ZMP/ZTP riboswitch aptamer (pfl RNA motif): an 83-nucleotide RNA sequence from Deinococcus ruber. Its family is annotated with regulation of purine nucleotide biosynthetic process and one-carbon metabolic process in the Gene Ontology.
[Rfam]
RNA sequence: CGAACGCGCGGUAACUGGCGUCGCGUGGGCCACCACGGGGAAGCCGCGACGGGAAGUGAAGGCCGCACGCCUGGGCCGGACGG
Numbered sequence: 001c002g003a004a005c006g007c008g009c010g011g012u013a014a015c016u017g018g019c020g021u022c023g024c025g026u027g028g029g030c031c032a033c034c035a036c037g038g039g040g041a042a043g044c045c046g047c048g049a050c051g052g053g054a055a056g057u058g059a060a061g062g063c064c065g066c067a068c069g070c071c072u073g074g075g076c077c078g079g080a081c082g083g
Base pairs, nucleotide, nucleotide: 007048008047009046010045011044012043015040016039017071018070019069020068021067025036026035027034028033061077062076063075064074